[Rfam]
RNA sequence: CGUCGUUCUCAGGGCGGGGUGCAAGUCCCCACCGGCGGUGAUGGGGAAACUCCAAGCCCGCGAGCGGUCCGUGUCCAGGCAUGGAUGUCAGCAGAUCCGGUGAGAUUCCGGAGCCGACGGUAUAGUCCGGAUGGAAGAGGGCGGGU
Numbered sequence: 001c002g003u004c005g006u007u008c009u010c011a012g013g014g015c016g017g018g019g020u021g022c023a024a025g026u027c028c029c030c031a032c033c034g035g036c037g038g039u040g041a042u043g044g045g046g047a048a049a050c051u052c053c054a055a056g057c058c059c060g061c062g063a064g065c066g067g068u069c070c071g072u073g074u075c076c077a078g079g080c081a082u083g084g085a086u087g088u089c090a091g092c093a094g095a096u097c098c099g100g101u102g103a104g105a106u107u108c109c110g111g112a113g114c115c116g117a118c119g120g121u122a123u124a125g126u127c128c129g130g131a132u133g134g135a136a137g138a139g140g141g142c143g144g145g146u
Stems, first nucleotide, its partner, number of pairs: 003144008017029003031126002033116002035061004056114002064092002096112005118129003
RNA: FMN riboswitch aptamer (RFN element)
Organism: Phytoamicus setariae